[Rfam]
RNA: mir-184 microRNA precursor family
RNA sequence: UUUCUUACAGACCCUUGUCAUUCUCACGCCCGGUGUUGUCAUUUCGCUACUGGACGGAGAACUGAUAAGGGCUUGUGGGUAU
Numbered sequence: 001u002u003u004c005u006u007a008c009a010g011a012c013c014c015u016u017g018u019c020a021u022u023c024u025c026a027c028g029c030c031c032g033g034u035g036u037u038g039u040c041a042u043u044u045c046g047c048u049a050c051u052g053g054a055c056g057g058a059g060a061a062c063u064g065a066u067a068a069g070g071g072c073u074u075g076u077g078g079g080u081a082u
Stems, first nucleotide, its partner, number of pairs: 012071009021061005029053002